[Rfam]
RNA sequence: ACCGACAGAAAUUAAUUUCGUGGGAAACUUAAAGUUCCGACGGAAUAUUCCGUCGGAAAGUACAUAUUUUCCGAUGAAUUUUUAUUCCGUCGGAGAUUUCCGACGGAAUAAAAAUUCGUCGGAAAAUAUGUAC
Numbered sequence: 001a002c003c004g005a006c007a008g009a010a011a012u013u014a015a016u017u018u019c020g021u022g023g024g025a026a027a028c029u030u031a032a033a034g035u036u037c038c039g040a041c042g043g044a045a046u047a048u049u050c051c052g053u054c055g056g057a058a059a060g061u062a063c064a065u066a067u068u069u070u071c072c073g074a075u076g077a078a079u080u081u082u083u084a085u086u087c088c089g090u091c092g093g094a095g096a097u098u099u100c101c102g103a104c105g106g107a108a109u110a111a112a113a114a115u116u117c118g119u120c121g122g123a124a125a126a127u128a129u130g131u132a133c
Stems, first nucleotide, its partner, number of pairs: 003055004008050001018043004023038004066127011082111012
RNA: Small nucleolar RNA SNORA69
Organism: Chenopodium quinoa